[Rfam]
RNA sequence: GUUUAUCAAAUUUUUAGACAAUUCAAAUUUAUUCAUAAAACCAUUCGAAAGGAGCAAAUUGAAAUGACUAACAGAACACAAGCAAAUACUCUACCGACAACAACAAAUAUUUUAGUCAUUUUAUUAAUUUGCUAGGACUCGAACUUUAGUAAAAACCAUUACUAAAUGUUUAAGUCCUAUUUCCGAUUGAAUGGGACUUCCAUUGA
Number, nucleotide and partner (000 for none) at each position: 001g000002u000003u000004u000005a000006u000007c000008a000009a000010a000011u000012u000013u000014u000015u000016a000017g000018a000019c000020a000021a000022u000023u000024c205025a204026a203027a000028u000029u000030u000031a000032u000033u000034c000035a000036u000037a000038a000039a000040a000041c000042c193043a192044u191045u190046c189047g188048a187049a000050a000051g184052g000053a000054g130055c000056a128057a000058a000059u115060u114061g113062a112063a111064a110065u109066g108067a000068c000069u105070a000071a000072c000073a000074g000075a000076a000077c000078a000079c000080a000081a000082g000083c000084a000085a000086a000087u000088a000089c000090u000091c000092u000093a000094c000095c000096g000097a000098c000099a000100a000101c000102a000103a000104c000105a069106a000107a000108u066109a065110u064111u063112u062113u061114a060115g059116u000117c000118a000119u000120u000121u000122u000123a000124u000125u000126a000127a000128u056129u000130u054131g000132c000133u000134a178135g177136g176137a175138c174139u000140c000141g000142a000143a170144c168145u000146u165147u164148a163149g162150u161151a160152a159153a000154a000155a000156c000157c000158a000159u152160u151161a150162c149163u148164a147165a146166a000167u000168g144169u000170u143171u000172a000173a000174g138175u137176c136177c135178u134179a000180u000181u000182u000183c000184c051185g000186a000187u048188u047189g046190a045191a044192u043193g042194g000195g000196a000197c000198u000199u000200c000201c000202a000203u026204u025205g024206a000

About this RNA
Shown here is a 206-nucleotide RNA from Staphylococcus simulans, a member of the family "Listeria sRNA rli60". Rfam classes the family as a small RNA. The source organism's lineage runs through Bacteria, Bacillati, Bacilli, Staphylococcaceae and Staphylococcus.